[Rfam]
mir-156 microRNA precursor family: an 85-nucleotide sequence from Phoenix dactylifera.
The organism belongs to Phoenix, within Eukaryota.
This family represents the plant microRNA (miRNA) precursor mir-156.
RNA sequence: UUGACAGAAGAGAGUGAGCACCCAUGGUGCUUUCUUGCAUGGCUUCAUGCUCGAAGCUAUGUGUGCCCACUUCUCUUUCUGUCAA
Numbered sequence: 001u002u003g004a005c006a007g008a009a010g011a012g013a014g015u016g017a018g019c020a021c022c023c024a025u026g027g028u029g030c031u032u033u034c035u036u037g038c039a040u041g042g043c044u045u046c047a048u049g050c051u052c053g054a055a056g057c058u059a060u061g062u063g064u065g066c067c068c069a070c071u072u073c074u075c076u077u078u079c080u081g082u083c084a085a
Stems, first nucleotide, its partner, number of pairs: 001085009010075003013071004018066004023061003